[Rfam]
RNA: glmS glucosamine-6-phosphate activated ribozyme aptamer
Organism: Clostridium senegalense
RNA sequence: AUAAAUUCAAAAGCGCCAGGACUUGGAAAAAUUAAUUUCGUUAAUAGGUGGAUAUGCUAGGCUGUGUUUACAUUAGAGUUAAAAUAGCAACAUUCAUUUAUGAGAAAUUUUAAAAUUUUCAAGUUGACGAGGAUGGGGAGUAUCGAAUCUUCGGCGGGUGCCCCACGGUAUCGCACUACCGUUAAAGAUUGAUAAAAGCAAAAAGCGAUUUUUGUCACAAUAUCAAUCAGGUGUUAAAA
Numbered sequence: 001a002u003a004a005a006u007u008c009a010a011a012a013g014c015g016c017c018a019g020g021a022c023u024u025g026g027a028a029a030a031a032u033u034a035a036u037u038u039c040g041u042u043a044a045u046a047g048g049u050g051g052a053u054a055u056g057c058u059a060g061g062c063u064g065u066g067u068u069u070a071c072a073u074u075a076g077a078g079u080u081a082a083a084a085u086a087g088c089a090a091c092a093u094u095c096a097u098u099u100a101u102g103a104g105a106a107a108u109u110u111u112a113a114a115a116u117u118u119u120c121a122a123g124u125u126g127a128c129g130a131g132g133a134u135g136g137g138g139a140g141u142a143u144c145g146a147a148u149c150u151u152c153g154g155c156g157g158g159u160g161c162c163c164c165a166c167g168g169u170a171u172c173g174c175a176c177u178a179c180c181g182u183u184a185a186a187g188a189u190u191g192a193u194a195a196a197a198g199c200a201a202a203a204a205g206c207g208a209u210u211u212u213u214g215u216c217a218c219a220a221u222a223u224c225a226a227u228c229a230g231g232u233g234u235u236a237a238a239a
Base pairs, nucleotide, nucleotide: 020125021124022123023122024121025120026119027118029116134165135164136163137162138161143154144153145152146151166181167180168179169178170177187228188227189226190225191224198215199214200213201212202211203210204209